RNA sequence: GGCAGAUGAUGUCCUUAUCUCACGAUGGUCUGCGGAUUGACUGCGGGAAUGGCGACAAUGCCAAUGGCUUAGCUGAUGCCAGGAG
Numbered sequence: 001g002g003c004a005g006a007u008g009a010u011g012u013c014c015u016u017a018u019c020u021c022a023c024g025a026u027g028g029u030c031u032g033c034g035g036a037u038u039g040a041c042u043g044c045g046g047g048a049a050u051g052g053c054g055a056c057a058a059u060g061c062c063a064a065u066g067g068c069u070u071a072g073c074u075g076a077u078g079c080c081a082g083g084a085g
Stems, first nucleotide, its partner, number of pairs: 001080004

This 85-nucleotide RNA belongs to the Rfam family "Small nucleolar RNA SNORD35". Rfam 15.1 lists 1,842 matches to the family in 634 species. Clan: SNORD35 clan. U35 is a C/D box snoRNA located in intron 6 of ribosomal protein L13A and intron 3 of ribosomal protein S11 in humans and at homologous positions in mouse and chicken ribosomal protein genes. U35 guides the methylation of 2'-O-ribose sites in 28S rRNA.